[Rfam]
RNA sequence: UAGGGGGAGGGAGGAGGCAUGGCUGGUAGUAUGUUAAUAGCUGUCCAUACUGCCAGACAUGCCACCUUUCUCACCCUACA
Numbered sequence: 001u002a003g004g005g006g007g008a009g010g011g012a013g014g015a016g017g018c019a020u021g022g023c024u025g026g027u028a029g030u031a032u033g034u035u036a037a038u039a040g041c042u043g044u045c046c047a048u049a050c051u052g053c054c055a056g057a058c059a060u061g062c063c064a065c066c067u068u069u070c071u072c073a074c075c076c077u078a079c080a
Stems, first nucleotide, its partner, number of pairs: 001078005007072004013066002016063005023056009
Description: The record is an 80-nucleotide sequence from Eptesicus fuscus, which matches "mir-9186 microRNA precursor family" in Rfam. Rfam 15.1 lists 143 matches to the family in 7 species. The sequence is in the family's curated seed alignment. Its family is annotated with RISC complex and miRNA-mediated post-transcriptional gene silencing in the Gene Ontology.